[Rfam]
This 61-nucleotide sequence from Pristionchus pacificus belongs to the Rfam family "mir-8364 microRNA precursor family". Pairs were carried over by alignment from the consensus structure, which was predicted with RNAalifold. Rfam links the family to the GO terms RISC complex and miRNA-mediated post-transcriptional gene silencing.

RNA sequence: UCUUCAUUUCCCACACUCUAUCAUCAGUCAGAGAUGCGAGAGAGUGCGUGAAAUGAAGAGA
Number, nucleotide and partner (000 for none) at each position: 001u059002c058003u057004u056005c055006a054007u053008u000009u000010c050011c000012c048013a000014c046015a045016c044017u043018c000019u041020a000021u039022c038023a000024u000025c000026a000027g000028u000029c000030a000031g000032a000033g000034a000035u000036g000037c000038g022039a021040g000041a019042g000043a017044g016045u015046g014047c000048g012049u000050g010051a000052a000053a007054u006055g005056a004057a003058g002059a001060g000061a000